Rfam assigns this 579-nucleotide part of an RNA from Thermoplasmatales archaeon A-plasma to the family "Archaeal large subunit ribosomal RNA". The base pairs follow the family's consensus structure, which is taken from published work. Rfam's curators put it in the seed alignment. Lineage of the source: Archaea > Methanobacteriati > Thermoplasmatota > Thermoplasmata > Thermoplasmatales.
RNA sequence: CUCCCACGUGAAAGCGAAGUCCCCGUGGAGCUUUACUGCAGCCUGUAGCUGUAAUACGGUGCUUAAUGCGUAGAGUAGGAAGGAGCUGUCGAUGCCUGGGUUCUGGCUCAGGUGGAGGCGACGAUGAAACACUUCCCUUUGAGUACUGAAUUACUAACCUCGCAAGAGGGACAACUAUUGGUGGGCAGUUUGGGUGGGGCGCCACGCCCCCGAGAAUUUAACAGGGGCCCCCAAAGGUUAGCUCAGGAGGGUCAGUAAUCCUCCGUAGAGUGUAAGGGCAAAAGCUAGCUUGACUGAGUUCCGGACAAUAAGGAACGCAGAUGCGAAAGCAGGGCCUAACGAACCACCCUGUCCCCCUUUAGUGGGGGCGGGUGAUAAGAGAGAAGUUACCCCAGGGAUAACUGAGUUGUCCUCGGCAAGAGUUCAUAUCGACCCGAGGGUUUGCUACUUCGAUGUCGUCUGUUCCUAUCCUGGUGCUGAACAAGGUGCCAAGGGUGGGGCUGUUCGCCCAUUAAAAGGGAUCCUGAGAUGGGUUCACUACGUCGCGAGACAGUAGGGUUGCUUCUCCGUGGGAGUGUU
Numbered sequence: 001c002u003c004c005c006a007c008g009u010g011a012a013a014g015c016g017a018a019g020u021c022c023c024c025g026u027g028g029a030g031c032u033u034u035a036c037u038g039c040a041g042c043c044u045g046u047a048g049c050u051g052u053a054a055u056a057c058g059g060u061g062c063u064u065a066a067u068g069c070g071u072a073g074a075g076u077a078g079g080a081a082g083g084a085g086c087u088g089u090c091g092a093u094g095c096c097u098g099g100g101u102u103c104u105g106g107c108u109c110a111g112g113u114g115g116a117g118g119c120g121a122c123g124a125u126g127a128a129a130c131a132c133u134u135c136c137c138u139u140u141g142a143g144u145a146c147u148g149a150a151u152u153a154c155u156a157a158c159c160u161c162g163c164a165a166g167a168g169g170g171a172c173a174a175c176u177a178u179u180g181g182u183g184g185g186c187a188g189u190u191u192g193g194g195u196g197g198g199g200c201g202c203c204a205c206g207c208c209c210c211c212g213a214g215a216a217u218u219u220a221a222c223a224g225g226g227g228c229c230c231c232c233a234a235a236g237g238u239u240a241g242c243u244c245a246g247g248a249g250g251g252u253c254a255g256u257a258a259u260c261c262u263c264c265g266u267a268g269a270g271u272g273u274a275a276g277g278g279c280a281a282a283a284g285c286u287a288g289c290u291u292g293a294c295u296g297a298g299u300u301c302c303g304g305a306c307a308a309u310a311a312g313g314a315a316c317g318c319a320g321a322u323g324c325g326a327a328a329g330c331a332g333g334g335c336c337u338a339a340c341g342a343a344c345c346a347c348c349c350u351g352u353c354c355c356c357c358u359u360u361a362g363u364g365g366g367g368g369c370g371g372g373u374g375a376u377a378a379g380a381g382a383g384a385a386g387u388u389a390c391c392c393c394a395g396g397g398a399u400a401a402c403u404g405a406g407u408u409g410u411c412c413u414c415g416g417c418a419a420g421a422g423u424u425c426a427u428a429u430c431g432a433c434c435c436g437a438g439g440g441u442u443u444g445c446u447a448c449u450u451c452g453a454u455g456u457c458g459u460c461u462g463u464u465c466c467u468a469u470c471c472u473g474g475u476g477c478u479g480a481a482c483a484a485g486g487u488g489c490c491a492a493g494g495g496u497g498g499g500g501c502u503g504u505u506c507g508c509c510c511a512u513u514a515a516a517a518g519g520g521a522u523c524c525u526g527a528g529a530u531g532g533g534u535u536c537a538c539u540a541c542g543u544c545g546c547g548a549g550a551c552a553g554u555a556g557g558g559u560u561g562c563u564u565c566u567c568c569g570u571g572g573g574a575g576u577g578u579u
Stems, first nucleotide, its partner, number of pairs: 001575008010567002014562002022396002025393001027392002029388005035189004042181002045178004051154005057148010068137001078136005085119003097110005158169004192205001193203003206228005231334002237289006243269002246264006270279002294320003298316005322331001324329001345374005351369001354368004405446003409443001410440007420430002457532001458530004462524001463521005470495002474489005498510004538556004542551003